[Rfam]
RNA sequence: CUUUCGUAGCCAUGAAGUUAAUGGCUAGAGUGACUAGACCCGUAACAUUACCAUAUAUCAUUUGAACUGAAAUUUGUUUGUUCUGAGGAUUAUUUUUCAAGAUAUCAAAACGAAGAUAAGUGGCUGCACAAACUUUUUUUAGCGAAUAUAUCGUUAUGUUAUCGGGUCUAGCACUCUAUCCACUGAUUUCAUGACCACGAGCCUC
Numbered sequence: 001c002u003u004u005c006g007u008a009g010c011c012a013u014g015a016a017g018u019u020a021a022u023g024g025c026u027a028g029a030g031u032g033a034c035u036a037g038a039c040c041c042g043u044a045a046c047a048u049u050a051c052c053a054u055a056u057a058u059c060a061u062u063u064g065a066a067c068u069g070a071a072a073u074u075u076g077u078u079u080g081u082u083c084u085g086a087g088g089a090u091u092a093u094u095u096u097u098c099a100a101g102a103u104a105u106c107a108a109a110a111c112g113a114a115g116a117u118a119a120g121u122g123g124c125u126g127c128a129c130a131a132a133c134u135u136u137u138u139u140u141a142g143c144g145a146a147u148a149u150a151u152c153g154u155u156a157u158g159u160u161a162u163c164g165g166g167u168c169u170a171g172c173a174c175u176c177u178a179u180c181c182a183c184u185g186a187u188u189u190c191a192u193g194a195c196c197a198c199g200a201g202c203c204u205c
Stems, first nucleotide, its partner, number of pairs: 003201005009195001011193010022182003026178007034171009043161006050154002053151006062145003067142005076133003088121001090119007098112001
RNA: MIR4240 microRNA precursor family
Organism: Arabidopsis thaliana